[Rfam]
RNA sequence: UGUCGUCGGGUAAGCACUACGCGACCAGCUCCUACUGAACUCCCCCAGGGUCGGAAGGCAGCAAGGGUAGGUGGUCGAAGCGGUGCGACGUAGCUGCUUACCCACUU
Numbered sequence: 001u002g003u004c005g006u007c008g009g010g011u012a013a014g015c016a017c018u019a020c021g022c023g024a025c026c027a028g029c030u031c032c033u034a035c036u037g038a039a040c041u042c043c044c045c046c047a048g049g050g051u052c053g054g055a056a057g058g059c060a061g062c063a064a065g066g067g068u069a070g071g072u073g074g075u076c077g078a079a080g081c082g083g084u085g086c087g088a089c090g091u092a093g094c095u096g097c098u099u100a101c102c103c104a105c106u107u
Base pairs, nucleotide, nucleotide: 008103009102010101011100012099013098014097015096017093018092019091020090021089022087023086024084025083
This 107-nucleotide RNA from Marinifilum sp. N1E240 belongs to the Rfam family "Bacteroidales small SRP".
The base pairs follow the family's consensus structure, which is taken from published work.
Rfam classes the family as a non-coding RNA gene.
Lineage of the source: Bacteria > Pseudomonadati > Bacteroidota > Marinifilaceae > Marinifilum.
Its Rfam clan is "SRP clan".